[Rfam]
RNA sequence: CGGGAUAUAGCGCAGCUUGGUAGCGCGCCUCGUUCGGGACGAGGAGGUCGUGGGUUCGAAUCCCGCUAUCCCGA
Numbered sequence: 001c002g003g004g005a006u007a008u009a010g011c012g013c014a015g016c017u018u019g020g021u022a023g024c025g026c027g028c029c030u031c032g033u034u035c036g037g038g039a040c041g042a043g044g045a046g047g048u049c050g051u052g053g054g055u056u057c058g059a060a061u062c063c064c065g066c067u068a069u070c071c072c073g074a
Stems, first nucleotide, its partner, number of pairs: 001073007010026004028044005050066005
The family of this 74-nucleotide sequence from Brevibacterium luteolum is "tRNA".
NCBI's taxonomy places the organism under Bacteria, Bacillati, Micrococcales, Brevibacteriaceae, Brevibacterium.
It scores 67 bits against the family's covariance model.
The family's consensus secondary structure is taken from published work.